The record is a 67-nucleotide RNA sequence from Mycobacterium tuberculosis, which matches "G2" in Rfam. Taxonomically the source falls in Mycobacterium tuberculosis (Bacteria, Actinomycetota, Actinomycetes, Mycobacterium). The family's consensus secondary structure is taken from published work.
RNA sequence: CUUCAGCGGGGGGCUUAUCGAUGCAUCCCCACCCCAUCCCUCGAGAUAAGAUCCCCCGCUGGCCCUC
Numbered sequence: 001c002u003u004c005a006g007c008g009g010g011g012g013g014c015u016u017a018u019c020g021a022u023g024c025a026u027c028c029c030c031a032c033c034c035c036a037u038c039c040c041u042c043g044a045g046a047u048a049a050g051a052u053c054c055c056c057c058g059c060u061g062g063c064c065c066u067c
Stems, first nucleotide, its partner, number of pairs: 003062011014050006020038004